Notes: A member of the RNA family "mir-2774 microRNA precursor family" from Bombyx mori, 67 nucleotides long. The literature on the family includes a 2010 paper in BMC Genomics by Liu et al., "MicroRNAs of Bombyx mori identified by Solexa sequencing".

RNA sequence: ACAACAUUCGGACCGUCGGUCUACCAAGCAAUAUUACCCGCUCAGUGGAAGAUCUUCCCUUUAUCUU
Dot-bracket structure: ...(.(...(((..(((..(((((..(((..........)))..))))).)))..)))...).)...
Numbered sequence: 001a002c003a004a005c006a007u008u009c010g011g012a013c014c015g016u017c018g019g020u021c022u023a024c025c026a027a028g029c030a031a032u033a034u035u036a037c038c039c040g041c042u043c044a045g046u047g048g049a050a051g052a053u054c055u056u057c058c059c060u061u062u063a064u065c066u067u
Stems, first nucleotide, its partner, number of pairs: 004064001006062001010058003015053003020049005027042003